[Rfam]
RNA: Group II catalytic intron D1-D4-6
RNA sequence: AAAGUCCCUACGAGGUAAGGCGGGCGGGCCGCUUCGUCCCCGAGUCAUGCGCGACUGUCCGCAAGGGCCGCCGUGAAGUGUUGACAGGGGUGUCUGCAGGCGAAGUAUCGAGCUGCGAAAUCACUAGUUGGAGAGGCAGAUGCUGUUAAGCGAAGCAGAAUGCAACAUGACCCGUACCGUCAAACCGCAAGGUAUGGGCCACUCUUCCGCAGUCGUAGACCU
Numbered sequence: 001a002a003a004g005u006c007c008c009u010a011c012g013a014g015g016u017a018a019g020g021c022g023g024g025c026g027g028g029c030c031g032c033u034u035c036g037u038c039c040c041c042g043a044g045u046c047a048u049g050c051g052c053g054a055c056u057g058u059c060c061g062c063a064a065g066g067g068c069c070g071c072c073g074u075g076a077a078g079u080g081u082u083g084a085c086a087g088g089g090g091u092g093u094c095u096g097c098a099g100g101c102g103a104a105g106u107a108u109c110g111a112g113c114u115g116c117g118a119a120a121u122c123a124c125u126a127g128u129u130g131g132a133g134a135g136g137c138a139g140a141u142g143c144u145g146u147u148a149a150g151c152g153a154a155g156c157a158g159a160a161u162g163c164a165a166c167a168u169g170a171c172c173c174g175u176a177c178c179g180u181c182a183a184a185c186c187g188c189a190a191g192g193u194a195u196g197g198g199c200c201a202c203u204c205u206u207c208c209g210c211a212g213u214c215g216u217a218g219a220c221c222u
Stems, first nucleotide, its partner, number of pairs: 011036005019030003024188002038090004044085004048080002050075004055070001057068004110214001112213006130207006136163003141157004168201002171198008